[Rfam]
A member of the RNA family "TPP riboswitch aptamer (THI element)" from Thauera sinica, 98 nucleotides long. Taxonomically the source falls in Thauera (Bacteria, Pseudomonadota, Betaproteobacteria, Zoogloeaceae). It scores 69 bits against the family's covariance model.
RNA sequence: CCUCGCCGUUAGGGGUGCCCGCCGCGUCUGCGGGCUGAGAGAAACCCUUGGAACCUGAUCCGGCUCGCACCGGCGUAGGGAAACGUGUCCAUGAGUCG
Numbered sequence: 001c002c003u004c005g006c007c008g009u010u011a012g013g014g015g016u017g018c019c020c021g022c023c024g025c026g027u028c029u030g031c032g033g034g035c036u037g038a039g040a041g042a043a044a045c046c047c048u049u050g051g052a053a054c055c056u057g058a059u060c061c062g063g064c065u066c067g068c069a070c071c072g073g074c075g076u077a078g079g080g081a082a083a084c085g086u087g088u089c090c091a092u093g094a095g096u097c098g
Stems, first nucleotide, its partner, number of pairs: 007085004011048004016042001017035005054079004060073004